Rfam assigns this 75-nucleotide RNA sequence from Streptomyces spongiae to the family "ASpks TB sRNA".
The match comes from Rfam's covariance-model search (60 bits).
By type it is an antisense RNA.
Rfam 15.1 lists 9,052 matches to the family in 683 species.
RNA sequence: CUUGAGGGACCCGAGCCAGGCGGGCCGGUUCGCCGGGCGGUCCUGUCCGUAUGUGGCGAGGAGGGCUUGGGCUUC
Numbered sequence: 001c002u003u004g005a006g007g008g009a010c011c012c013g014a015g016c017c018a019g020g021c022g023g024g025c026c027g028g029u030u031c032g033c034c035g036g037g038c039g040g041u042c043c044u045g046u047c048c049g050u051a052u053g054u055g056g057c058g059a060g061g062a063g064g065g066c067u068u069g070g071g072c073u074u075c
Stems, first nucleotide, its partner, number of pairs: 015025003031071001033069001038065001043060002047056003